[Rfam]
RNA: Plant small nucleolar RNA R71
Organism: Prunus persica
RNA sequence: AUUUUGACAUGUGGACACUUUAUGUACAUCUCUGUAUAUCUCUCCCACGCUUCAUGAAACUCUUCAUUGGGCUUCUGUGUGAAUGUCAAAAUCUCCCUCUUGUAAUU
Numbered sequence: 001a002u003u004u005u006g007a008c009a010u011g012u013g014g015a016c017a018c019u020u021u022a023u024g025u026a027c028a029u030c031u032c033u034g035u036a037u038a039u040c041u042c043u044c045c046c047a048c049g050c051u052u053c054a055u056g057a058a059a060c061u062c063u064u065c066a067u068u069g070g071g072c073u074u075c076u077g078u079g080u081g082a083a084u085g086u087c088a089a090a091a092u093c094u095c096c097c098u099c100u101u102g103u104a105a106u107u
Stems, first nucleotide, its partner, number of pairs: 001107001003105002005102002057074002060071001